This 207-nucleotide RNA sequence from Moneuplotes crassus belongs to the Rfam family "Ciliate telomerase RNA". Telomerase is a ribonucleoprotein reverse transcriptase that synthesises telomeric DNA. Telomerase RNAs differ greatly in sequence and structure between vertebrates, ciliates and yeasts, but they share a 5' pseudoknot structure close to the template sequence.
RNA sequence: GGAUAUAGGGUAGUUCUCCAUUGACUAAUCCGUCAAAUCUGUCAAACAAAACCCCAAAACCGAUCAAUAGGUGCGUUUAGCUUGAUUACACCUCUUAAAUGAAAUCUUGCAAUUCUGGAGAGCUUGAGAGGUGAAACCCCCACAGUUAGGUCAAACAUAGUUUGAGAUUUGUAUCUCAUAUGCUCUAGCUGUCCUCUCAUCUUUUUG
Numbered sequence: 001g002g003a004u005a006u007a008g009g010g011u012a013g014u015u016c017u018c019c020a021u022u023g024a025c026u027a028a029u030c031c032g033u034c035a036a037a038u039c040u041g042u043c044a045a046a047c048a049a050a051a052c053c054c055c056a057a058a059a060c061c062g063a064u065c066a067a068u069a070g071g072u073g074c075g076u077u078u079a080g081c082u083u084g085a086u087u088a089c090a091c092c093u094c095u096u097a098a099a100u101g102a103a104a105u106c107u108u109g110c111a112a113u114u115c116u117g118g119a120g121a122g123c124u125u126g127a128g129a130g131g132u133g134a135a136a137c138c139c140c141c142a143c144a145g146u147u148a149g150g151u152c153a154a155a156c157a158u159a160g161u162u163u164g165a166g167a168u169u170u171g172u173a174u175c176u177c178a179u180a181u182g183c184u185c186u187a188g189c190u191g192u193c194c195u196c197u198c199a200u201c202u203u204u205u206u207g
Stems, first nucleotide, its partner, number of pairs: 006109005019041002022035003075089002082101001086097001127197005142192005149185002152182002

The family is grouped with related families in Rfam's "Telomerase clan". Gene Ontology terms of the family: telomerase catalytic core complex, telomere maintenance via telomerase and telomerase activity. The family's RNA type in Rfam is non-coding RNA gene.